This 77-nucleotide RNA sequence belongs to the Rfam family "RAGATH-18 RNA". Rfam's curators write: Actinobacteria, Firmicutes, Fusobacteria, Thermotogae (1 example).

RNA sequence: CCCUUGGAGCAUUAUAUCAAACAAGAGUAGUUAGUUGGCUUAGUUUAACGACAAAAUUGGGUGCGAUGAACAGGGAA
Numbered sequence: 001c002c003c004u005u006g007g008a009g010c011a012u013u014a015u016a017u018c019a020a021a022c023a024a025g026a027g028u029a030g031u032u033a034g035u036u037g038g039c040u041u042a043g044u045u046u047a048a049c050g051a052c053a054a055a056a057u058u059g060g061g062u063g064c065g066a067u068g069a070a071c072a073g074g075g076a077a
Stems, first nucleotide, its partner, number of pairs: 001075004009064005022059003030052003034049005